[Rfam]
RNA sequence: UCGCAGAGUAGAAGCGUUCAGCGUCAGCCAUGCGCCGGCGCCCGGAAAUUGCUCGAGUC
Number, nucleotide and partner (000 for none) at each position: 001u000002c000003g000004c000005a000006g054007a053008g052009u051010a050011g000012a000013a000014g000015c044016g000017u000018u046019c045020a000021g041022c040023g039024u038025c037026a000027g035028c000029c000030a000031u000032g000033c000034g000035c027036c000037g025038g024039c023040g022041c021042c000043c000044g015045g019046a018047a000048a000049u000050u010051g009052c008053u007054c006055g000056a000057g000058u000059c000
This 59-nucleotide RNA belongs to the Rfam family "Xanthine riboswitch aptamer (NMT1 RNA)". A search with the family's covariance model found it, with a score of 43 bits. For this family Rfam cites "A bacterial riboswitch class senses xanthine and uric acid to regulate genes associated with purine oxidation" (Yu and Breaker, RNA, 2020). Gene Ontology term of the family: purine nucleobase binding.